[Rfam]
RNA sequence: CCGGUCUUGGUUUCAGCUCCAGAUUGACGUAUCUGCCAGCCUUGCCGUGACCGAGAGUAAUCCUUCAGGUGUGAUCCUCUUGAUUGAGGAACCCUGAGCAGUAACAGGUGUGGGCAUUCCCCAGAGACUAAUGUCCAUGUAUAAUACUGCACACAAUC
Numbered sequence: 001c002c003g004g005u006c007u008u009g010g011u012u013u014c015a016g017c018u019c020c021a022g023a024u025u026g027a028c029g030u031a032u033c034u035g036c037c038a039g040c041c042u043u044g045c046c047g048u049g050a051c052c053g054a055g056a057g058u059a060a061u062c063c064u065u066c067a068g069g070u071g072u073g074a075u076c077c078u079c080u081u082g083a084u085u086g087a088g089g090a091a092c093c094c095u096g097a098g099c100a101g102u103a104a105c106a107g108g109u110g111u112g113g114g115c116a117u118u119c120c121c122c123a124g125a126g127a128c129u130a131a132u133g134u135c136c137a138u139g140u141a142u143a144a145u146a147c148u149g150c151a152c153a154c155a156a157u158c
Stems, first nucleotide, its partner, number of pairs: 003052004008047003016040003020035005065083002067080003071077001095153002098150006106142001111137003115133004121126001
Dot-bracket structure: ..((((.(((.....(((.(((((......)))))..)))....))).))))............(((((.(.....)))).))...........((.((((((..(....(((.((((..(....)...)))).)))....)..)))))).)).....
A member of the RNA family "Small Cajal body specific RNA 16" from Aquarana catesbeiana, 158 nucleotides long. Taxonomically the source falls in Aquarana (Eukaryota, Metazoa, Craniata, Vertebrata). Rfam describes the family as follows. scaRNAs are a specific class of small nuclear RNAs which localise to the Cajal bodies and guide the modification of RNA polymerase II transcribed spliceosomal RNAs U1, U2, U4, U5 and U12. ACA47 belongs to the H/ACA box class of guide RNAs as it has the predicted hairpin-hinge-hairpin-tail structure, the conserved H/ACA-box motifs and is found associated with GAR1. It scores 66 bits against the family's covariance model. Its family is annotated with RNA processing and nucleolus in the Gene Ontology. The family's consensus secondary structure was predicted with RNAfold.